[Rfam]
RNA: Bacterial large subunit ribosomal RNA, nucleotides 630 to 839
RNA sequence: AAGUUAAUGGAAGUAGCAAGGUUAAUAACCCUAGCGAAAGCGACUGUAAUUAUAAUUAUAAUUAACGGGAUUAGUUACUUUCAUUAUACCCGAAACGAGGUGAUCUUUCCAUGGCCAGAUUAUAAUGGAUCGAACGGUUGAAUGUUGCAUAAUUCUCCGAAGAGCUGUGGAAGGGGGUGAAAGGCCAAUCGUACCUCGUGAUAGCUGGUU
Numbered sequence: 001a002a003g004u005u006a007a008u009g010g011a012a013g014u015a016g017c018a019a020g021g022u023u024a025a026u027a028a029c030c031c032u033a034g035c036g037a038a039a040g041c042g043a044c045u046g047u048a049a050u051u052a053u054a055a056u057u058a059u060a061a062u063u064a065a066c067g068g069g070a071u072u073a074g075u076u077a078c079u080u081u082c083a084u085u086a087u088a089c090c091c092g093a094a095a096c097g098a099g100g101u102g103a104u105c106u107u108u109c110c111a112u113g114g115c116c117a118g119a120u121u122a123u124a125a126u127g128g129a130u131c132g133a134a135c136g137g138u139u140g141a142a143u144g145u146u147g148c149a150u151a152a153u154u155c156u157c158c159g160a161a162g163a164g165c166u167g168u169g170g171a172a173g174g175g176g177g178u179g180a181a182a183g184g185c186c187a188a189u190c191g192u193a194c195c196u197c198g199u200g201a202u203a204g205c206u207g208g209u210u
Stems, first nucleotide, its partner, number of pairs: 005086013020030004034041002044068004089208002092205001096198006105174011116162001118131004135159003140155004176186003